[Rfam]
RNA sequence: AAGGCAGCCAGUGCAUCUGCUUACCUAAAUGGGUAGUUGAAGAGAUUUAGAUAAAGCUGGCAAAAAUAGUGCCAUGAUACAAGCCUUAAGGACAAUAAAAGUCAUUAAAGUCCCUGCGAAUGGCUUCAACA
Numbered sequence: 001a002a003g004g005c006a007g008c009c010a011g012u013g014c015a016u017c018u019g020c021u022u023a024c025c026u027a028a029a030u031g032g033g034u035a036g037u038u039g040a041a042g043a044g045a046u047u048u049a050g051a052u053a054a055a056g057c058u059g060g061c062a063a064a065a066a067u068a069g070u071g072c073c074a075u076g077a078u079a080c081a082a083g084c085c086u087u088a089a090g091g092a093c094a095a096u097a098a099a100a101g102u103c104a105u106u107a108a109a110g111u112c113c114c115u116g117c118g119a120a121u122g123g124c125u126u127c128a129a130c131a
Base pairs, nucleotide, nucleotide: 003061005059006058007057016043017042018041020039071124072123073122074121083111084110086108087107088106089105091103092102093101
Small nucleolar RNA SNORA33: a 131-nucleotide RNA from Dipodomys ordii. Rfam's curators write: ACA33 is a member of the H/ACA class of snoRNA that guide the sites of modification of uridines to pseudouridines. Rfam 15.1 lists 1,176 matches to the family in 522 species.